[Rfam]
RNA sequence: ACUGGCAGGGAUGAUCCAUACUUGCCCUCACUUAGACCAGAGGCCAUUGAUGAGGCGCUGUUUUCUGAGCCAGU
Numbered sequence: 001a002c003u004g005g006c007a008g009g010g011a012u013g014a015u016c017c018a019u020a021c022u023u024g025c026c027c028u029c030a031c032u033u034a035g036a037c038c039a040g041a042g043g044c045c046a047u048u049g050a051u052g053a054g055g056c057g058c059u060g061u062u063u064u065c066u067g068a069g070c071c072a073g074u
Base pairs, nucleotide, nucleotide: 001074002073003072004071005070006069